A member of the RNA family "6S / SsrS RNA" from Hydrogenothermus marinus, 167 nucleotides long. Rfam's curators write: E. coli 6S RNA was the first non coding RNA to be sequenced, but its function was unknown until recently.
RNA sequence: AAAAGCCUGCGGGGUGCGAUAGGGAUGUCCUGAAAUUUUCUGGGCUAUAACAGGACGAAAGGGAGUCCUACAUCCCGUAUAUUCCAGUAGGAAUUACGGUGCGGACACCCACCUAUUGCUUGGAACCCAGAAAUAUGGGUUCUUCCCGUCGGCCUCGCGGGUUAUUA
Numbered sequence: 001a002a003a004a005g006c007c008u009g010c011g012g013g014g015u016g017c018g019a020u021a022g023g024g025a026u027g028u029c030c031u032g033a034a035a036u037u038u039u040c041u042g043g044g045c046u047a048u049a050a051c052a053g054g055a056c057g058a059a060a061g062g063g064a065g066u067c068c069u070a071c072a073u074c075c076c077g078u079a080u081a082u083u084c085c086a087g088u089a090g091g092a093a094u095u096a097c098g099g100u101g102c103g104g105a106c107a108c109c110c111a112c113c114u115a116u117u118g119c120u121u122g123g124a125a126c127c128c129a130g131a132a133a134u135a136u137g138g139g140u141u142c143u144u145c146c147c148g149u150c151g152g153c154c155u156c157g158c159g160g161g162u163u164a165u166u167a
Stems, first nucleotide, its partner, number of pairs: 002165001004163012017151003037133004042128003045123001061110003065106004072100001076098004084091002